Background:
Small nucleolar RNA SNORA38: a 132-nucleotide RNA sequence from Ochotona princeps.
RNA sequence: UCCUCCUACAAAGGCGUGUCUAUGGUACCCUGUCUUUGGACACGUAAGAAUUGGAGGCAAAGAAAUGUGGACUUGGGGAAGUUCUGGAGCCAGCUUGCUCCCCGCAGGUUCAAGACCAACCCUCCCACAUUG
Numbered sequence: 001u002c003c004u005c006c007u008a009c010a011a012a013g014g015c016g017u018g019u020c021u022a023u024g025g026u027a028c029c030c031u032g033u034c035u036u037u038g039g040a041c042a043c044g045u046a047a048g049a050a051u052u053g054g055a056g057g058c059a060a061a062g063a064a065a066u067g068u069g070g071a072c073u074u075g076g077g078g079a080a081g082u083u084c085u086g087g088a089g090c091c092a093g094c095u096u097g098c099u100c101c102c103c104g105c106a107g108g109u110u111c112a113a114g115a116c117c118a119a120c121c122c123u124c125c126c127a128c129a130u131u132g
Stems, first nucleotide, its partner, number of pairs: 002057005015044007024030002069125003092110007
ACA38 is a member of the H/ACA class of snoRNA that guide the sites of modification of uridines to pseudouridines. Gene Ontology terms of the family: nucleolus, RNA processing and Cajal body. Taxonomically the source falls in Ochotona (Eukaryota, Eumetazoa, Gnathostomata, Tetrapoda). The sequence is in the family's curated seed alignment.